The record is a 266-nucleotide RNA from Macrococcus lamae, which matches "Bacterial large signal recognition particle RNA" in Rfam. Taxonomically the source falls in Macrococcus (Bacteria, Bacillati, Bacillota, Caryophanales). Rfam classes the family as a non-coding RNA gene. Rfam links the family to the GO terms SRP-dependent cotranslational protein targeting to membrane, signal sequence recognition and signal recognition particle, plasma membrane targeting. A search with the family's covariance model found it, with a score of 183 bits.
[Rfam]
RNA sequence: CCGUGCUAAGUGGGGAGUUAGCGGUUCCCUGUACUUGCAAGCCGCUUAGGCAAGACCGAAUCCCUCUGCCGAGAGUAACAUAUUGUGAGGCCUGACCUUAACACGUGGUGUUGAGAAGACGGUCCGAGUCAAUAUAAGCCCAUGAAUCAUGUCAGGUCCGGAAGGAAGCAGCAUUAAGUGGUCACUUGUAUGUGGCUGGGGCAGCCGUCUUUGAGCUGUCGAUUGAGGUUCCGCUUGUGGAUGUUAAACGAAGCAGAGGUGCACGG
Numbered sequence: 001c002c003g004u005g006c007u008a009a010g011u012g013g014g015g016a017g018u019u020a021g022c023g024g025u026u027c028c029c030u031g032u033a034c035u036u037g038c039a040a041g042c043c044g045c046u047u048a049g050g051c052a053a054g055a056c057c058g059a060a061u062c063c064c065u066c067u068g069c070c071g072a073g074a075g076u077a078a079c080a081u082a083u084u085g086u087g088a089g090g091c092c093u094g095a096c097c098u099u100a101a102c103a104c105g106u107g108g109u110g111u112u113g114a115g116a117a118g119a120c121g122g123u124c125c126g127a128g129u130c131a132a133u134a135u136a137a138g139c140c141c142a143u144g145a146a147u148c149a150u151g152u153c154a155g156g157u158c159c160g161g162a163a164g165g166a167a168g169c170a171g172c173a174u175u176a177a178g179u180g181g182u183c184a185c186u187u188g189u190a191u192g193u194g195g196c197u198g199g200g201g202c203a204g205c206c207g208u209c210u211u212u213g214a215g216c217u218g219u220c221g222a223u224u225g226a227g228g229u230u231c232c233g234c235u236u237g238u239g240g241a242u243g244u245u246a247a248a249c250g251a252a253g254c255a256g257a258g259g260u261g262c263a264c265g266g
Stems, first nucleotide, its partner, number of pairs: 001266006010056002012030008034054005063259007073249001076246002080244005085238005094229001097227005105220001107217003115212009124200002127197003130192002133190005138183001140181004149174004157166003